Background:
The family of this 88-nucleotide RNA sequence from Symbiodinium natans is "Selenocysteine transfer RNA". A search with the family's covariance model found it, with a score of 76 bits.
RNA sequence: GCGUGGAUGAUCUUCACUGGUGUGGAGUGCGGACUUCAAAUCCGUAGGAGAUGAAAUAUUCUCAGUGGUUCGAUUCCACCUUCUGCGC
Numbered sequence: 001g002c003g004u005g006g007a008u009g010a011u012c013u014u015c016a017c018u019g020g021u022g023u024g025g026a027g028u029g030c031g032g033a034c035u036u037c038a039a040a041u042c043c044g045u046a047g048g049a050g051a052u053g054a055a056a057u058a059u060u061c062u063c064a065g066u067g068g069u070u071c072g073a074u075u076c077c078a079c080c081u082u083c084u085g086c087g088c
Stems, first nucleotide, its partner, number of pairs: 001088007009080001012027006028046006048063004065079004